[Rfam]
Source information:
This 146-nucleotide RNA belongs to the Rfam family "RT-14 RNA". Rfam classes the family as a small RNA. The sequence is in the family's curated seed alignment. The family's consensus secondary structure is taken from published work.
RNA sequence: CUCUAAUAUUAGUUCAGAUUAUAUAUUUUAAGGAAUAUAUACAGUAGCAUAUUAGAUAUUAAAGAGAAUUAUUCCUUCCUAAUUUAGGUAAAAAUGUAUCAUUUAGAUUAUGUAUUAGUAAACUUAGUUGAAUAUACGUAAUCUAA
Numbered sequence: 001c002u003c004u005a006a007u008a009u010u011a012g013u014u015c016a017g018a019u020u021a022u023a024u025a026u027u028u029u030a031a032g033g034a035a036u037a038u039a040u041a042c043a044g045u046a047g048c049a050u051a052u053u054a055g056a057u058a059u060u061a062a063a064g065a066g067a068a069u070u071a072u073u074c075c076u077u078c079c080u081a082a083u084u085u086a087g088g089u090a091a092a093a094a095u096g097u098a099u100c101a102u103u104u105a106g107a108u109u110a111u112g113u114a115u116u117a118g119u120a121a122a123c124u125u126a127g128u129u130g131a132a133u134a135u136a137c138g139u140a141a142u143c144u145a146a
Stems, first nucleotide, its partner, number of pairs: 003055007013047002020041009078088004103146013121129002